[Rfam]
Rfam assigns this 116-nucleotide RNA from Suicoccus acidiformans to the family "FMN riboswitch aptamer (RFN element)". Lineage of the source: Bacteria > Bacilli > Lactobacillales > Aerococcaceae > Suicoccus.
RNA sequence: AAAAUUCUUCAGGGCAGGGUGUAAUUCCCGACCGGUGGUAAAGUCCACAAGCGCUUCAGCGCUGAAUUGGUGAAAUUCCAAUACCGACAGUAAAGUCUGGAUGAGAGAAGAAUGAC
Numbered sequence: 001a002a003a004a005u006u007c008u009u010c011a012g013g014g015c016a017g018g019g020u021g022u023a024a025u026u027c028c029c030g031a032c033c034g035g036u037g038g039u040a041a042a043g044u045c046c047a048c049a050a051g052c053g054c055u056u057c058a059g060c061g062c063u064g065a066a067u068u069g070g071u072g073a074a075a076u077u078c079c080a081a082u083a084c085c086g087a088c089a090g091u092a093a094a095g096u097c098u099g100g101a102u103g104a105g106a107g108a109a110g111a112a113u114g115a116c
Stems, first nucleotide, its partner, number of pairs: 004113007017029003031096002033086002035048004043084002051062003066082005088099003
Dot-bracket structure: ...(((((((......(((.......))).[[((((((....[[))))..(((......)))...(((((.......)))))]])).(((....]]))).......)))))))...